Overview: Rfam assigns this 146-nucleotide sequence from Buttiauxella agrestis to the family "Leucine operon leader". Its family is annotated with leucine biosynthetic process in the Gene Ontology. By type it is a cis-regulatory leader. It scores 106 bits against the family's covariance model.
Nucleotides: 146
Base pairs, nucleotide, nucleotide: 006105007104008103009102010101012099014097015096016094017093030084031083032082033081034080035079036078037077038076045073046072047071048070049069053067054066055065056064118143119142120141121140122139123138124137125136126135127134128133
Number, partner (000 for none) and nucleotide at each position: 001000u002000u003000g004000g005000g006105g007104c008103u009102u010101g011000a012099a013000a014097c015096a016094u017093g018000a019000u020000u021000c022000g023000c024000a025000g026000c027000a028000a029000c030084c031083g032082c033081c034080u035079a036078c037077u038076a039000g040000g041000u042000c043000u044000a045073c046072u047071a048070c049069u050000a051000a052000a053067c054066g055065c056064a057000a058000c059000u060000u061000c062000a063000u064056u065055g066054c067053g068000c069049g070048g071047u072046a073045g074000g075000c076038u077037g078036g079035u080034g081033g082032g083031c084030g085000a086000a087000a088000u089000c090000a091000a092000g093017c094016g095000u096015u097014g098000a099012u100000u101010c102009a103008a104007g105006c106000c107000a108000u109000c110000a111000g112000a113000c114000a115000g116000a117000a118143a119142a120141a121140a122139c123138c124137c125136g126135c127134g128133c129000c130000a131000c132000u133128g134127c135126g136125c137124g138123g139122g140121u141120u142119u143118u144000u145000u146000u